[Rfam]
RNA sequence: UAGGGGGAGGUUGGCGGUAUCACUGGUACUGAUGUAAUGGCUGCCCACAGUACCAGAAAUUCCGCCCGCCUUCCCCUACA
Numbered sequence: 001u002a003g004g005g006g007g008a009g010g011u012u013g014g015c016g017g018u019a020u021c022a023c024u025g026g027u028a029c030u031g032a033u034g035u036a037a038u039g040g041c042u043g044c045c046c047a048c049a050g051u052a053c054c055a056g057a058a059a060u061u062c063c064g065c066c067c068g069c070c071u072u073c074c075c076c077u078a079c080a
Stems, first nucleotide, its partner, number of pairs: 001078005007072004013066005019060002023056009